[Rfam]
This 146-nucleotide RNA from Streptosporangium saharense belongs to the Rfam family "c-di-AMP riboswitch aptamer (ydaO/yuaA leader)". Taxonomically the source falls in Streptosporangium (Bacteria, Actinomycetes, Streptosporangiales, Streptosporangiaceae). A search with the family's covariance model found it, with a score of 83 bits. On this family, see Barrick et al., Proc Natl Acad Sci U S A 2004: "New RNA motifs suggest an expanded scope for riboswitches in bacterial genetic control". About the family: This family represents a conserved RNA structure found upstream of the ydaO and yuaA genes in Bacillus subtilis and related genes in other bacteria.
RNA sequence: GCAGACGUCGAAUCCCGAAGCCUCCCGAGGGCGAAGGGAACCGGGGACCCACCUUCUGGGGUGAAUCCGCCGCCACCGCGCGACGGUAGGGCAACUCCACCGCCCGAACCCGUCAGCUAACCCGGUAGACGAGAUGGAGAGGAGAU
Numbered sequence: 001g002c003a004g005a006c007g008u009c010g011a012a013u014c015c016c017g018a019a020g021c022c023u024c025c026c027g028a029g030g031g032c033g034a035a036g037g038g039a040a041c042c043g044g045g046g047a048c049c050c051a052c053c054u055u056c057u058g059g060g061g062u063g064a065a066u067c068c069g070c071c072g073c074c075a076c077c078g079c080g081c082g083a084c085g086g087u088a089g090g091g092c093a094a095c096u097c098c099a100c101c102g103c104c105c106g107a108a109c110c111c112g113u114c115a116g117c118u119a120a121c122c123c124g125g126u127a128g129a130c131g132a133g134a135u136g137g138a139g140a141g142g143a144g145a146u
Stems, first nucleotide, its partner, number of pairs: 006131004013039003040126006050058002059111003067086003089105004